[Rfam]
RNA: azaaromatic riboswitch aptamer (yjdF RNA)
Organism: Eubacterium callanderi
RNA sequence: AAUCACAAAGAUAAAAACACAGUCCGGUUGGUAGUCCGGGCGCGGCGACGCCGUCAGUAACCUGCCUCCUUGGUUGUCCGUUCUUUAGUGAUUUUACU
Numbered sequence: 001a002a003u004c005a006c007a008a009a010g011a012u013a014a015a016a017a018c019a020c021a022g023u024c025c026g027g028u029u030g031g032u033a034g035u036c037c038g039g040g041c042g043c044g045g046c047g048a049c050g051c052c053g054u055c056a057g058u059a060a061c062c063u064g065c066c067u068c069c070u071u072g073g074u075u076g077u078c079c080g081u082u083c084u085u086u087a088g089u090g091a092u093u094u095u096a097c098u
Stems, first nucleotide, its partner, number of pairs: 004090003007086005022041006042054005064074003